Shown here is an 80-nucleotide RNA sequence from Domibacillus epiphyticus, a member of the family "Glycine riboswitch aptamer". Rfam links the family to the GO term glycine biosynthetic process. NCBI's taxonomy places the organism under Bacteria, Bacillati, Bacillota, Bacillaceae, Domibacillus. The match comes from Rfam's covariance-model search (46 bits). From the family's description: This family represents the bacterial glycine riboswitch.

[Rfam]
RNA sequence: GGAGCAGUUUCUGGAGAGAUCGCAAAUCUUUGCGGCGCCGAAGGGUUCACAAUCUCAGGCAAAAGGACAGGAGUAUAAAU
Number, nucleotide and partner (000 for none) at each position: 001g000002g000003a000004g000005c000006a000007g074008u073009u072010u071011c070012u069013g068014g000015a000016g000017a000018g000019a000020u035021c034022g033023c032024a000025a000026a000027u000028c000029u000030u000031u000032g023033c022034g021035g020036c000037g060038c059039c058040g056041a055042a000043g000044g054045g053046u052047u000048c000049a000050c000051a000052a046053u045054c044055u041056c040057a000058g039059g038060c037061a000062a000063a000064a000065g000066g000067a000068c013069a012070g011071g010072a009073g008074u007075a000076u000077a000078a000079a000080u000